This 138-nucleotide sequence from Dongibacter bovis belongs to the Rfam family "Ribosomal protein L10 leader". On this family, see Yakhnin et al., Nucleic Acids Res 2015: "Ribosomal protein L10(L12)4 autoregulates expression of the Bacillus subtilis rplJL operon by a transcription attenuation mechanism". Taxonomically the source falls in Dongibacter (Bacteria, Bacillati, Bacillota, Selenomonadaceae). The base pairs follow the family's consensus structure, which was predicted with CMfinder. By type it is a cis-regulatory leader.
[Rfam]
RNA sequence: CACAAAUGAAUAUCUUGGCUGUAGACAGCAGGUUUGAUUUCUCAUCUAACGGGUAAAACCGCCUGCCGAGGCCGGAGCACAUGAACUUGAAUGUUAUGAGCCUCCGGCGUGCAGCCGGGGGUUCUUUUGCUUCGCUUU
Numbered sequence: 001c002a003c004a005a006a007u008g009a010a011u012a013u014c015u016u017g018g019c020u021g022u023a024g025a026c027a028g029c030a031g032g033u034u035u036g037a038u039u040u041c042u043c044a045u046c047u048a049a050c051g052g053g054u055a056a057a058a059c060c061g062c063c064u065g066c067c068g069a070g071g072c073c074g075g076a077g078c079a080c081a082u083g084a085a086c087u088u089g090a091a092u093g094u095u096a097u098g099a100g101c102c103u104c105c106g107g108c109g110u111g112c113a114g115c116c117g118g119g120g121g122u123u124c125u126u127u128u129g130c131u132u133c134g135c136u137u138u
Base pairs, nucleotide, nucleotide: 028066029065030064031063032062033061099123100122101121102120103119104118105117106116107115108114